[Rfam]
RNA sequence: UCGAAGAGUAGAAGCGUUCAACCGCCCCGCCCUUUCCAGGCAUCGGGGCGGCAGGAAAUUGCUCUUGAG
Number, nucleotide and partner (000 for none) at each position: 001u000002c000003g000004a000005a065006g064007a063008g062009u061010a060011g000012a000013a000014g000015c054016g000017u000018u056019c055020a000021a000022c051023c050024g049025c048026c047027c046028c045029g044030c000031c000032c000033u000034u000035u000036c000037c000038a000039g000040g000041c000042a000043u000044c029045g028046g027047g026048g025049c024050g023051g022052c000053a000054g015055g019056a018057a000058a000059u000060u010061g009062c008063u007064c006065u005066u000067g000068a000069g000